[Rfam]
RNA: ZMP/ZTP riboswitch aptamer (pfl RNA motif)
Organism: Aeromicrobium sp. Root495
RNA sequence: GCGUGUCGUCGCGACUGGCGCUGAGGUGGACACCCACCAGGGAGCGACGACGAGCACGACGUCGGGACCGUCCGCCUGGGCCCCGUGU
Numbered sequence: 001g002c003g004u005g006u007c008g009u010c011g012c013g014a015c016u017g018g019c020g021c022u023g024a025g026g027u028g029g030a031c032a033c034c035c036a037c038c039a040g041g042g043a044g045c046g047a048c049g050a051c052g053a054g055c056a057c058g059a060c061g062u063c064g065g066g067a068c069c070g071u072c073c074g075c076c077u078g079g080g081c082c083c084c085g086u087g088u
Base pairs, nucleotide, nucleotide: 004052005051006050007049008048009047010046011045012044015041016040017076018075019074020073026037027036028035029034065083066082068080069079